[Rfam]
RNA sequence: CAUACUGUUUUCUAGGGUUCCGUGGCUAUCUUCGCCAGUCUGGUCCGAGAGAAAACACACAACGGAUACGUUGUGGACACGGAGGGGAAAAAGCCCGGGAGUC
Numbered sequence: 001c002a003u004a005c006u007g008u009u010u011u012c013u014a015g016g017g018u019u020c021c022g023u024g025g026c027u028a029u030c031u032u033c034g035c036c037a038g039u040c041u042g043g044u045c046c047g048a049g050a051g052a053a054a055a056c057a058c059a060c061a062a063c064g065g066a067u068a069c070g071u072u073g074u075g076g077a078c079a080c081g082g083a084g085g086g087g088a089a090a091a092a093g094c095c096c097g098g099g100a101g102u103c
Base pairs, nucleotide, nucleotide: 007056008055009054010053011052012051015046016045020043021042022040023037024036025035026034028032058075059074060073061072062071063070064069078098080101084096085095086094
Shown here is a 103-nucleotide RNA sequence from Paenibacillus sp. N3.4, a member of the family "Guanidine-I riboswitch aptamer". It scores 87 bits against the family's covariance model. Taxonomically the source falls in Paenibacillus (Bacteria, Bacillati, Bacillota, Caryophanales).